[Rfam]
RNA sequence: GGGUUCGAGGGGCGCUGCAGCCUUGAUCGGUUUUCAUCGAUGCGGGGUGAGGCUCGGAUCUGCAGUUAUACGGUAACGGUGCCCGUUUUUC
Dot-bracket structure: .(((((((............(((((.................)))))......)))))))...............................

Annotation
Rfam assigns this 91-nucleotide RNA sequence from Pistricoccus aurantiacus to the family "SAH (S-adenosyl-L-homocysteine) riboswitch aptamer". The base pairs follow the family's consensus structure, which is taken from published work.